[Rfam]
RNA sequence: GCCAUCUUGUCGGGGUGCCUUUUUACUGUGUUGGUCAAUAGAUCAUGUAUGAAAAGUGCUGAGAUUGUCCCGUUGAACCUGAUCAGAGUCACGUCUGCGUAGGGAACAAGCGUGUUUUUGCA
Numbered sequence: 001g002c003c004a005u006c007u008u009g010u011c012g013g014g015g016u017g018c019c020u021u022u023u024u025a026c027u028g029u030g031u032u033g034g035u036c037a038a039u040a041g042a043u044c045a046u047g048u049a050u051g052a053a054a055a056g057u058g059c060u061g062a063g064a065u066u067g068u069c070c071c072g073u074u075g076a077a078c079c080u081g082a083u084c085a086g087a088g089u090c091a092c093g094u095c096u097g098c099g100u101a102g103g104g105a106a107c108a109a110g111c112g113u114g115u116u117u118u119u120g121c122a
Stems, first nucleotide, its partner, number of pairs: 006110005011072004017059002020056005078103004084097004
RNA: TPP riboswitch aptamer (THI element)
Organism: gamma proteobacterium IMCC1989